[Rfam]
RNA sequence: UGAAGUCGAGAAAAACGACGCACACAUGUCGCAACUUCGUUCAGGGUGCCGGUAAAUCCGGUUUGAUUCGGGGGGCAUGUGGAAGACUAAC
Dot-bracket structure: ......................((((((((....(((.(.(((....(((((.....))))).))).).))).))))))))..........
t44 RNA: a 91-nucleotide RNA from Parahalioglobus pacificus. A search with the family's covariance model found it, with a score of 52 bits. Lineage of the source: Bacteria > Pseudomonadota > Gammaproteobacteria > Halieaceae > Parahalioglobus. It is annotated as a small RNA.